This 71-nucleotide sequence from Rattus norvegicus belongs to the Rfam family "mir-344 microRNA precursor family". The match comes from Rfam's covariance-model search (73 bits). Lineage of the source: Eukaryota > Tetrapoda > Mammalia > Eutheria > Rattus.

RNA sequence: UGAUCAGUCAGGCUACUGGUUAUUUUCCAGGACUUAUCCGGUCCUGGGUAUAACCAAAGCCCGACUGAAUA
Numbered sequence: 001u002g003a004u005c006a007g008u009c010a011g012g013c014u015a016c017u018g019g020u021u022a023u024u025u026u027c028c029a030g031g032a033c034u035u036a037u038c039c040g041g042u043c044c045u046g047g048g049u050a051u052a053a054c055c056a057a058a059g060c061c062c063g064a065c066u067g068a069a070u071a
Stems, first nucleotide, its partner, number of pairs: 007065003011061004017056007027041002030038002